[Rfam]
RNA sequence: UGUGUCUCGUCAGUGGUUUUACCCUAUGGUAGGUUUCCAUGCUGUUCUACCACAGGGUAGAACCACGGACGGGAUAU
Dot-bracket structure: .........((.(((((((((((((.(((((((...(......).))))))).))))))))))))))).........
Numbered sequence: 001u002g003u004g005u006c007u008c009g010u011c012a013g014u015g016g017u018u019u020u021a022c023c024c025u026a027u028g029g030u031a032g033g034u035u036u037c038c039a040u041g042c043u044g045u046u047c048u049a050c051c052a053c054a055g056g057g058u059a060g061a062a063c064c065a066c067g068g069a070c071g072g073g074a075u076a077u
Stems, first nucleotide, its partner, number of pairs: 010068002013066013027052007037044001

The family of this 77-nucleotide RNA from Albula goreensis is "mir-140 microRNA precursor family". Rfam 15.1 lists 648 matches to the family in 615 species. A reference for the family is Xu et al. (2006), "Identification of microRNAs from different tissues of chicken embryo and adult chicken", FEBS Lett.